[Rfam]
RNA sequence: GGUUGUGUCGAUUCGAUAGGGAUACUCAUCAAAUAACAUUGAAAACCGAUGUUGCAUCUUCUACCAAUGGCGGGCCACAAAGGGAUUUCAUAUCCCGAGCUGCAAAGUCGGUGGAUUACAAAGGAGAGGAGCACUCAAAUCUUUUAGAUUCGGAGUUUUCAUCACAUCAUCGCCACGACCCCUUUC
Numbered sequence: 001g002g003u004u005g006u007g008u009c010g011a012u013u014c015g016a017u018a019g020g021g022a023u024a025c026u027c028a029u030c031a032a033a034u035a036a037c038a039u040u041g042a043a044a045a046c047c048g049a050u051g052u053u054g055c056a057u058c059u060u061c062u063a064c065c066a067a068u069g070g071c072g073g074g075c076c077a078c079a080a081a082g083g084g085a086u087u088u089c090a091u092a093u094c095c096c097g098a099g100c101u102g103c104a105a106a107g108u109c110g111g112u113g114g115a116u117u118a119c120a121a122a123g124g125a126g127a128g129g130a131g132c133a134c135u136c137a138a139a140u141c142u143u144u145u146a147g148a149u150u151c152g153g154a155g156u157u158u159u160c161a162u163c164a165c166a167u168c169a170u171c172g173c174c175a176c177g178a179c180c181c182c183u184u185u186c
Base pairs, nucleotide, nucleotide: 054132055131058129059128060127061126062125064124065123068120069119075114076113077112078111084096099108100107101106